Record summary
The family of this 117-nucleotide sequence from Jejuibacter calystegiae is "Ribosomal S15 leader". The E. coli Ribosomal S15 gene 5' UTR can form two alternative structures. It scores 115 bits against the family's covariance model. For this family Rfam cites "Pseudoknot and translational control in the expression of the S15 ribosomal protein" (Benard et al., Biochimie, 1996). The family is grouped with related families in Rfam's "Ribosomal Protein S15 Leader clan".
[Rfam]
RNA sequence: GGGGGUUGCUGAAUUAGAGAUCGGCGCCCUGUCAUUUACCUUAAGUUUUGGAGUUCUAAAAUGUCUCUAAGCGUUGAAGCUAAAGCUAAAAUCGUUUCUGAGUUCGGCCGUGAUGCA
Numbered sequence: 001g002g003g004g005g006u007u008g009c010u011g012a013a014u015u016a017g018a019g020a021u022c023g024g025c026g027c028c029c030u031g032u033c034a035u036u037u038a039c040c041u042u043a044a045g046u047u048u049u050g051g052a053g054u055u056c057u058a059a060a061a062u063g064u065c066u067c068u069a070a071g072c073g074u075u076g077a078a079g080c081u082a083a084a085g086c087u088a089a090a091a092u093c094g095u096u097u098c099u100g101a102g103u104u105c106g107g108c109c110g111u112g113a114u115g116c117a
Base pairs, nucleotide, nucleotide: 007026008025009024010023011022012021047071048070049069050068051067052066053065